[Rfam]
RNA sequence: ACGAUGUUCCGCUGCAUCUUUAUGAAUGGAAUGAGCAUCUG
Numbered sequence: 001a002c003g004a005u006g007u008u009c010c011g012c013u014g015c016a017u018c019u020u021u022a023u024g025a026a027u028g029g030a031a032u033g034a035g036c037a038u039c040u041g
Stems, first nucleotide, its partner, number of pairs: 003039007013031001015028003